[Rfam]
Nucleotides: 112
Base pairs, nucleotide, nucleotide: 004109006107007106008105010103011102012101013100014099015098017096018095019094020093021092022091023090024089025088026087027086029084030083
Number, partner (000 for none) and nucleotide at each position: 001000a002000u003000a004109a005000u006107g007106u008105u009000u010103c011102u012101u013100g014099c015098u016000c017096a018095a019094a020093u021092g022091a023090g024089u025088a026087u027086u028000c029084c030083a031000a032000u033000g034000g035000c036000c037000u038000u039000c040000a041000g042000c043000c044000a045000u046000u047000c048000a049000c050000u051000c052000g053000c054000a055000u056000c057000u058000u059000u060000u061000u062000u063000u064000c065000a066000a067000a068000a069000u070000u071000u072000c073000u074000c075000u076000c077000a078000g079000c080000u081000g082000u083030u084029g085000c086027g087026a088025u089024a090023c091022u092021c093020a094019u095018u096017u097000u098015a099014g100013c101012a102011a103010g104000a105008a106007a107006c108000c109004u110000u111000a112000g
This 112-nucleotide RNA from Protea cynaroides belongs to the Rfam family "MIR828 microRNA precursor family".
A search with the family's covariance model found it, with a score of 77 bits.
The base pairs follow the family's consensus structure, which was predicted with RNAalifold.
On this family, see Rajagopalan et al., Genes Dev 2006: "A diverse and evolutionarily fluid set of microRNAs in Arabidopsis thaliana".